[Rfam]
RNA: mir-219 microRNA precursor family
Organism: Asbolus verrucosus
RNA sequence: UCAGGCCCUGAUUGUCCAAACGCAAUUCUUGUUUUCCUAUUCUAUCAAGAAUUGUGUAAUGGACAUCAUCGCUUGA
Dot-bracket structure: .(((((..((((.(((((..(((((((((((..............)))))))))))...)))))))))..))))).